A member of the RNA family "Small Cajal body specific RNA 11" from Baryphthengus martii, 142 nucleotides long. It scores 80 bits against the family's covariance model. NCBI's taxonomy places the organism under Eukaryota, Eumetazoa, Craniata, Tetrapoda, Baryphthengus. The family's consensus secondary structure was predicted with RNAalifold. scaRNAs are a specific class of small nuclear RNAs which localise to the Cajal bodies and guide the modification of RNA polymerase II transcribed spliceosomal RNAs U1, U2, U4, U5 and U12. ACA57 belongs to the H/ACA box class of guide RNAs as it has the predicted hairpin-hinge-hairpin-tail structure, conserved H/ACA-box motifs and is found associated with GAR1. ACA57 is predicted to guide the pseudouridylation of the U5 spliceosomal RNA at position U43.
RNA sequence: GUGUCCUGACCUCAUUCUGGCUGUUCCACUCACCAGAGCUGUGUGGUGGUGGGGCCUGGGGCUGGACACAGAACAACUUACCUCUCAUGUUAGGAGGGCUGCCAAAGAUGUGUGCAAGCCCUUAAAGGCAAGAGAGGACACU
Number, nucleotide and partner (000 for none) at each position: 001g000002u068003g067004u066005c065006c064007u000008g062009a000010c061011c060012u000013c000014a000015u000016u000017c000018u000019g000020g000021c000022u000023g055024u054025u053026c000027c051028a050029c049030u046031c045032a044033c000034c000035a000036g000037a000038g000039c000040u000041g000042u000043g000044u032045g031046g030047u000048g000049g029050u028051g027052g000053g025054g024055c023056c000057u000058g000059g000060g011061g010062c008063u000064g006065g005066a004067c003068a002069c000070a000071g000072a000073a000074c000075a000076a000077c000078u000079u000080a000081c137082c136083u135084c134085u133086c132087a000088u000089g000090u127091u126092a000093g000094g123095a122096g121097g120098g119099c118100u117101g115102c114103c112104a111105a000106a000107g000108a000109u000110g000111u104112g103113u000114g102115c101116a000117a100118g099119c098120c097121c096122u095123u094124a000125a000126a091127g090128g000129c000130a000131a000132g086133a085134g084135a083136g082137g081138a000139c000140a000141c000142u000